[Rfam]
RNA sequence: CUACUUACCAGUCAGGGACAUACCAUGAUUCCAAAGGUGGUUUUUCCAGGGCUAAGCUCAUCCACUGCACUCCAGGUGUGCUGACCCCUGCAAUUUCCCCAAAUGUGGAAACUCGACUGCAUGAUUUGUGAUAGUAGUGCCUGUGUGCAUGUUUUAU
Numbered sequence: 001c002u003a004c005u006u007a008c009c010a011g012u013c014a015g016g017g018a019c020a021u022a023c024c025a026u027g028a029u030u031c032c033a034a035a036g037g038u039g040g041u042u043u044u045u046c047c048a049g050g051g052c053u054a055a056g057c058u059c060a061u062c063c064a065c066u067g068c069a070c071u072c073c074a075g076g077u078g079u080g081c082u083g084a085c086c087c088c089u090g091c092a093a094u095u096u097c098c099c100c101a102a103a104u105g106u107g108g109a110a111a112c113u114c115g116a117c118u119g120c121a122u123g124a125u126u127u128g129u130g131a132u133a134g135u136a137g138u139g140c141c142u143g144u145g146u147g148c149a150u151g152u153u154u155u156a157u
Stems, first nucleotide, its partner, number of pairs: 013119003016047003020043001022041005048089004055082003059078004091115001093113001094111003098108002135156003139152002142149002